[Rfam]
BsrF: a 108-nucleotide sequence from Litchfieldia stipae.
For this family Rfam cites "Novel small RNA-encoding genes in the intergenic regions of Bacillus subtilis" (Saito et al., Gene, 2008).
The match comes from Rfam's covariance-model search (89 bits).
NCBI's taxonomy places the organism under Bacteria, Bacillati, Bacillota, Caryophanales, Litchfieldia.
The family's consensus secondary structure was predicted with WAR.

RNA sequence: GCGAUGAGCUGAAUUGUGUAAGUCGUUUGACACGCCAACUGGCAAUGCACUAUGUGGAGUGCAGUCUAACGCCUCAAUACGCAAGAACCAGAGAGAUUUUCUCUCUGG
Numbered sequence: 001g002c003g004a005u006g007a008g009c010u011g012a013a014u015u016g017u018g019u020a021a022g023u024c025g026u027u028u029g030a031c032a033c034g035c036c037a038a039c040u041g042g043c044a045a046u047g048c049a050c051u052a053u054g055u056g057g058a059g060u061g062c063a064g065u066c067u068a069a070c071g072c073c074u075c076a077a078u079a080c081g082c083a084a085g086a087a088c089c090a091g092a093g094a095g096a097u098u099u100u101c102u103c104u105c106u107g108g
Stems, first nucleotide, its partner, number of pairs: 014077003018073001024071004029066003034043002046063002049060003088108009